[Rfam]
RNA: mir-153 microRNA precursor family
RNA sequence: UCCCCUCUCAUUUUUGUGAUUUUUGCAAUUGUUCCUGGGUUCUGCAAUUGCAUAGUCACAAGAAUGAUGGGAGGG
Numbered sequence: 001u002c003c004c005c006u007c008u009c010a011u012u013u014u015u016g017u018g019a020u021u022u023u024u025g026c027a028a029u030u031g032u033u034c035c036u037g038g039g040u041u042c043u044g045c046a047a048u049u050g051c052a053u054a055g056u057c058a059c060a061a062g063a064a065u066g067a068u069g070g071g072a073g074g075g
Stems, first nucleotide, its partner, number of pairs: 002074002005071003008067013024052007